[Rfam]
Background
Rfam assigns this 134-nucleotide RNA sequence from Perca flavescens to the family "Small nucleolar RNA SNORA47". The literature on the family includes a 2001 paper in EMBO J by Huttenhofer et al., "RNomics: an experimental approach that identifies 201 candidates for novel, small, non-messenger RNAs in mouse".
Nucleotides: 134
Base pairs, nucleotide, nucleotide: 002059003058004057005056006055015046016045017044018043020040021039022038023037024036025035080125081124083123084122086120087119088118094114095113096112097111101108
Number, partner (000 for none) and nucleotide at each position: 001000c002059g003058g004057a005056g006055g007000a008000c009000u010000g011000a012000g013000a014000a015046g016045g017044u018043u019000g020040a021039g022038c023037a024036g025035c026000u027000u028000g029000c030000g031000c032000u033000g034000u035025g036024c037023u038022g039021c040020u041000a042000u043018a044017a045016c046015u047000g048000g049000u050000u051000a052000u053000a054000a055006c056005c057004u058003c059002c060000a061000a062000g063000a064000g065000u066000a067000a068000c069000a070000c071000a072000c073000a074000a075000a076000c077000c078000a079000c080125u081124c082000a083123a084122u085000u086120g087119a088118g089000c090000a091000u092000c093000u094114u095113u096112g097111u098000c099000a100000u101108g102000a103000g104000c105000u106000g107000a108101u109000u110000u111097g112096u113095a114094g115000u116000g117000u118088u119087u120086u121000u122084g123083u124081g125080a126000a127000c128000a129000a130000a131000a132000c133000a134000a
Rfam classes the family as an H/ACA-box small nucleolar RNA.